Rfam assigns this 228-nucleotide RNA from Miscanthus lutarioriparius to the family "MIR6217 microRNA precursor family". Rfam links the family to the GO terms RISC complex and miRNA-mediated post-transcriptional gene silencing. NCBI's taxonomy places the organism under Eukaryota, Viridiplantae, Tracheophyta, Spermatophyta, Miscanthus.
[Rfam]
RNA sequence: UGGCCGCAUAAUAAGUUAUUCUGUGACCACUUUGAGUUACGAUAAUUACUAUACUAAUUUACGAGAUUAUGGUAACUCCCUUAUAAGUGAUUUACUAUAGCAUUAUGAUAAGUAUCAUCUUGAAUUAUAGUAAACCAUGUAUCGUAAAUGUAUAUUUAUCAUUAUCGUAAAUUGGUACAAACAUUAUCGUAAAUCAAGGUAGCCAUAGAAUAAGUUAUUCUGUGGCCA
Numbered sequence: 001u002g003g004c005c006g007c008a009u010a011a012u013a014a015g016u017u018a019u020u021c022u023g024u025g026a027c028c029a030c031u032u033u034g035a036g037u038u039a040c041g042a043u044a045a046u047u048a049c050u051a052u053a054c055u056a057a058u059u060u061a062c063g064a065g066a067u068u069a070u071g072g073u074a075a076c077u078c079c080c081u082u083a084u085a086a087g088u089g090a091u092u093u094a095c096u097a098u099a100g101c102a103u104u105a106u107g108a109u110a111a112g113u114a115u116c117a118u119c120u121u122g123a124a125u126u127a128u129a130g131u132a133a134a135c136c137a138u139g140u141a142u143c144g145u146a147a148a149u150g151u152a153u154a155u156u157u158a159u160c161a162u163u164a165u166c167g168u169a170a171a172u173u174g175g176u177a178c179a180a181a182c183a184u185u186a187u188c189g190u191a192a193a194u195c196a197a198g199g200u201a202g203c204c205a206u207a208g209a210a211u212a213a214g215u216u217a218u219u220c221u222g223u224g225g226c227c228a
Stems, first nucleotide, its partner, number of pairs: 001228008010219005016213010027202001029200005037192010050179001052177011065166003069162006079150001081148002087142003092137001093132008103122001